The family of this 587-nucleotide part of an RNA is "Bacterial small subunit ribosomal RNA". On this family, see Yusupov et al., Science 2001: "Crystal structure of the ribosome at 5.5 A resolution".

RNA sequence: GUCCAAGUGCUUGACACAUGCUAAUCGUACGUUUUAAUUGCUAUCCCUUUGGGAAGGCGCAAGCUCGUAAGCAAUUAAAAAGUGGUGUACAGGUGAGUAUAAUGAUAUUCUUCGCCGGCCUUAAAGUGGAGGUAAAUCCUUCAUAAUAAAUAAAGGAAACAGGAUGAGAACUUGGCAAAUAAAGCUAGGCUUCUCAUCGUUUCUGCUUUAAGAGGAUAAUAAAUAUCUUCGAGAUAGGUAGUAGUUAAGGUGAUGACUUAACUAGCCUUAAACUCUCGUAGUCGAAUCUGAAAGGUUGAUCGACCACAUUGGGUCUGAAAAAACCCCAAUGCAAGUUAGUACAGCAGUGAGGAAUCUUGGUCAAUGGCCUAACGGCUGAACUGGCAACUUGGAGAAGUGGCAAGUCUUCCAGUAUGGGGAGCAAAACAGCUAUGGGUCAAGUCCGAUAUCUUUAGGAGGCGCGAAGCUCCUCUUAUUGUGAGGGCGAGUUUUAUAACACCAUAGGACUGGCCGUCCCAUAUGAAAAGAUUAUAUUAGAAUUGAAUGAAGCUUUGUUUAUAUAUUGAUAAUGACAGUAUAUAUAUCGU
Numbered sequence: 001g002u003c004c005a006a007g008u009g010c011u012u013g014a015c016a017c018a019u020g021c022u023a024a025u026c027g028u029a030c031g032u033u034u035u036a037a038u039u040g041c042u043a044u045c046c047c048u049u050u051g052g053g054a055a056g057g058c059g060c061a062a063g064c065u066c067g068u069a070a071g072c073a074a075u076u077a078a079a080a081a082g083u084g085g086u087g088u089a090c091a092g093g094u095g096a097g098u099a100u101a102a103u104g105a106u107a108u109u110c111u112u113c114g115c116c117g118g119c120c121u122u123a124a125a126g127u128g129g130a131g132g133u134a135a136a137u138c139c140u141u142c143a144u145a146a147u148a149a150a151u152a153a154a155g156g157a158a159a160c161a162g163g164a165u166g167a168g169a170a171c172u173u174g175g176c177a178a179a180u181a182a183a184g185c186u187a188g189g190c191u192u193c194u195c196a197u198c199g200u201u202u203c204u205g206c207u208u209u210a211a212g213a214g215g216a217u218a219a220u221a222a223a224u225a226u227c228u229u230c231g232a233g234a235u236a237g238g239u240a241g242u243a244g245u246u247a248a249g250g251u252g253a254u255g256a257c258u259u260a261a262c263u264a265g266c267c268u269u270a271a272a273c274u275c276u277c278g279u280a281g282u283c284g285a286a287u288c289u290g291a292a293a294g295g296u297u298g299a300u301c302g303a304c305c306a307c308a309u310u311g312g313g314u315c316u317g318a319a320a321a322a323a324c325c326c327c328a329a330u331g332c333a334a335g336u337u338a339g340u341a342c343a344g345c346a347g348u349g350a351g352g353a354a355u356c357u358u359g360g361u362c363a364a365u366g367g368c369c370u371a372a373c374g375g376c377u378g379a380a381c382u383g384g385c386a387a388c389u390u391g392g393a394g395a396a397g398u399g400g401c402a403a404g405u406c407u408u409c410c411a412g413u414a415u416g417g418g419g420a421g422c423a424a425a426a427c428a429g430c431u432a433u434g435g436g437u438c439a440a441g442u443c444c445g446a447u448a449u450c451u452u453u454a455g456g457a458g459g460c461g462c463g464a465a466g467c468u469c470c471u472c473u474u475a476u477u478g479u480g481a482g483g484g485c486g487a488g489u490u491u492u493a494u495a496a497c498a499c500c501a502u503a504g505g506a507c508u509g510g511c512c513g514u515c516c517c518a519u520a521u522g523a524a525a526a527g528a529u530u531a532u533a534u535u536a537g538a539a540u541u542g543a544a545u546g547a548a549g550c551u552u553u554g555u556u557u558a559u560a561u562a563u564u565g566a567u568a569a570u571g572a573c574a575g576u577a578u579a580u581a582u583a584u585c586g587u
Stems, first nucleotide, its partner, number of pairs: 002393006008386002010351001015349003019346003024086003029083002032079002035077007093307003102229001104227006112216002120212007128142004155204006230278003237267003242264008281304004285297002288295002309329005331340002357383001359382003365378005542578001546573001553566001
Dot-bracket structure: .(((((((((....(((.(((..(((..((.((.(((((((.............................)))))))))..)))))......(((......(.((((((..((......(((((((.((((.......))))............((((((......................................)))))).)))))))..)).....)))))).)(((....(((..((((((((.......)))))))))))........)))..((((((.((....))))...))))))).(((((...........))))).((......))...)))))).).....(.(((...(((((....))))).)))).)).))))))....................................................................................................................................................(...(......(............)......)....).........